[Rfam]
Nucleotides: 138
Stems, first nucleotide, its partner, number of pairs: 003059005016041001018039005076131004088118002093114003097110003
Number, partner (000 for none) and nucleotide at each position: 001000u002000g003059g004058u005057a006056u007055g008000u009000u010000g011000g012000a013000c014000a015000g016041g017000c018039g019038c020037u021036c022035u023000g024000c025000u026000u027000c028000u029000c030000u031000u032000u033000a034000a035022a036021g037020a038019g039018c040000a041016c042000g043000g044000a045000u046000u047000a048000u049000u050000c051000a052000u053000a054000c055007c056006a057005u058004g059003c060000g061000a062000c063000a064000u065000g066000a067000a068000u069000g070000a071000a072000a073000u074000g075000a076131g077130a078129a079128g080000u081000u082000u083000u084000c085000a086000a087000g088118g089117c090000u091000g092000g093114c094113a095112a096000u097110c098109u099108c100000c101000c102000a103000g104000g105000u106000a107000a108099g109098g110097g111000u112095u113094u114093g115000c116000a117089g118088u119000a120000g121000u122000u123000u124000a125000c126000u127000u128079c129078u130077u131076c132000u133000a134000c135000a136000a137000u138000a
About this RNA:
The record is a 138-nucleotide RNA sequence from Castor canadensis, which matches "Small nucleolar RNA U109" in Rfam. The literature on the family includes a 2005 paper in Nucleic Acids Res by Gu et al., "A novel experimental approach for systematic identification of box H/ACA snoRNAs from eukaryotes". Rfam 15.1 lists 1,405 matches to the family in 622 species. Taxonomically the source falls in Castor (Eukaryota, Metazoa, Sarcopterygii, Mammalia). The base pairs follow the family's consensus structure, which was predicted with WAR. Rfam classes the family as an H/ACA-box small nucleolar RNA.